This 101-nucleotide sequence from Rothia mucilaginosa belongs to the Rfam family "TPP riboswitch aptamer (THI element)".
Pairs were carried over by alignment from the consensus structure, which is taken from published work.
The source organism's lineage runs through Bacteria, Bacillati, Actinomycetota, Rothia and Rothia mucilaginosa.
[Rfam]
RNA sequence: CCCAAACGACAGGGGAGCGCCACCGAGGCGCUGAGAGUGCUAAGCAGACCCUCGAACCUGAUCCGGUUAGUACCGGCGUAGGGAGUCGAAUUUCUUCUCAA
Numbered sequence: 001c002c003c004a005a006a007c008g009a010c011a012g013g014g015g016a017g018c019g020c021c022a023c024c025g026a027g028g029c030g031c032u033g034a035g036a037g038u039g040c041u042a043a044g045c046a047g048a049c050c051c052u053c054g055a056a057c058c059u060g061a062u063c064c065g066g067u068u069a070g071u072a073c074c075g076g077c078g079u080a081g082g083g084a085g086u087c088g089a090a091u092u093u094c095u096u097c098u099c100a101a
Stems, first nucleotide, its partner, number of pairs: 007088004011052004017031005038046003057082004063076004
Dot-bracket structure: ......((((((((..(((((.....)))))......(((...)))..))))....((((..((((......))))..))))..)))).............